[Rfam]
RNA: SAM riboswitch aptamer (S box leader)
RNA sequence: UGCUUAUCAAGAAAGACCGAGGGACCGGACCCAACGAAGUCUUAGCAACCCUUUUUUGGCACAACGUGUCUGAACAAUAACCAAUAAGCCCUGAUAAUUGAUUAUUGUCUGCACGCUUUUUGCUAAAAAAAACGGUGCUACGUUCCACCCCAGCCGAUGGGGACAGAUAAGUU
Numbered sequence: 001u002g003c004u005u006a007u008c009a010a011g012a013a014a015g016a017c018c019g020a021g022g023g024a025c026c027g028g029a030c031c032c033a034a035c036g037a038a039g040u041c042u043u044a045g046c047a048a049c050c051c052u053u054u055u056u057u058g059g060c061a062c063a064a065c066g067u068g069u070c071u072g073a074a075c076a077a078u079a080a081c082c083a084a085u086a087a088g089c090c091c092u093g094a095u096a097a098u099u100g101a102u103u104a105u106u107g108u109c110u111g112c113a114c115g116c117u118u119u120u121u122g123c124u125a126a127a128a129a130a131a132a133c134g135g136u137g138c139u140a141c142g143u144u145c146c147a148c149c150c151c152a153g154c155c156g157a158u159g160g161g162g163a164c165a166g167a168u169a170a171g172u173u
Stems, first nucleotide, its partner, number of pairs: 002172007013043005021032003027146003044139004049135002052130010143165001148162005